RNA sequence: ACCUCUAAGCCAUCCCUCCAGCCCAAAUUUUACUUUUUAAAAGACAGAAAUGGGGCUGGAGGGAUGGCUUAGUGGU
Numbered sequence: 001a002c003c004u005c006u007a008a009g010c011c012a013u014c015c016c017u018c019c020a021g022c023c024c025a026a027a028u029u030u031u032a033c034u035u036u037u038u039a040a041a042a043g044a045c046a047g048a049a050a051u052g053g054g055g056c057u058g059g060a061g062g063g064a065u066g067g068c069u070u071a072g073u074g075g076u
Stems, first nucleotide, its partner, number of pairs: 002075002005072020
The record is a 76-nucleotide RNA sequence from Jaculus jaculus, which matches "mir-3473 microRNA precursor family" in Rfam. The base pairs follow the family's consensus structure, which was predicted with RNAalifold. The organism belongs to Jaculus, within Eukaryota. A search with the family's covariance model found it, with a score of 72 bits.